[Rfam]
RNA: terC RNA
RNA sequence: GAGGCGGUCCGGGCCCCUCUGGCAGUCGAGGCGUCGGCUGUGAUGUCGGACUAUUUCC
Number, nucleotide and partner (000 for none) at each position: 001g000002a000003g000004g000005c000006g052007g051008u050009c049010c048011g047012g046013g000014c000015c000016c000017c000018u000019c000020u000021g000022g041023c040024a039025g038026u037027c036028g035029a034030g000031g000032c000033g000034u029035c028036g027037g026038c025039u024040g023041u022042g000043a000044u000045g000046u012047c011048g010049g009050a008051c007052u006053a000054u000055u000056u000057c000058c000